[Rfam]
RNA: Streptomyces sRNA 4677
Organism: Streptomyces sp. NRRL B-3648
RNA sequence: AGGGCCGGGGCUGCGGGCGGUAAAAGACCAAAGAACCCAGGGAAAAAACCAACCAACCGAACCAAACCUCGCGUAGAUCACUCGGGCGGGUGAAACCGGUCGGUUCGGCUGGCGUGGCAGUGGCCCGAGCGUGCAGGCUCGCCCCGUGACGCCGAGGCAUAUGCCCGGCGCGACCACACGACCCCGUACAUGCAUCGGCCCCCGCCGGGACGGCAAUCCCAGUGCGAGGGCCUGACCAACGAGGAAGAGAAGAGCUUCCCC
Numbered sequence: 001a002g003g004g005c006c007g008g009g010g011c012u013g014c015g016g017g018c019g020g021u022a023a024a025a026g027a028c029c030a031a032a033g034a035a036c037c038c039a040g041g042g043a044a045a046a047a048a049c050c051a052a053c054c055a056a057c058c059g060a061a062c063c064a065a066a067c068c069u070c071g072c073g074u075a076g077a078u079c080a081c082u083c084g085g086g087c088g089g090g091u092g093a094a095a096c097c098g099g100u101c102g103g104u105u106c107g108g109c110u111g112g113c114g115u116g117g118c119a120g121u122g123g124c125c126c127g128a129g130c131g132u133g134c135a136g137g138c139u140c141g142c143c144c145c146g147u148g149a150c151g152c153c154g155a156g157g158c159a160u161a162u163g164c165c166c167g168g169c170g171c172g173a174c175c176a177c178a179c180g181a182c183c184c185c186g187u188a189c190a191u192g193c194a195u196c197g198g199c200c201c202c203c204g205c206c207g208g209g210a211c212g213g214c215a216a217u218c219c220c221a222g223u224g225c226g227a228g229g230g231c232c233u234g235a236c237c238a239a240c241g242a243g244g245a246a247g248a249g250a251a252g253a254g255c256u257u258c259c260c261c
Stems, first nucleotide, its partner, number of pairs: 007240001010237001017072003078093006108169005197232005203226003207220004243259005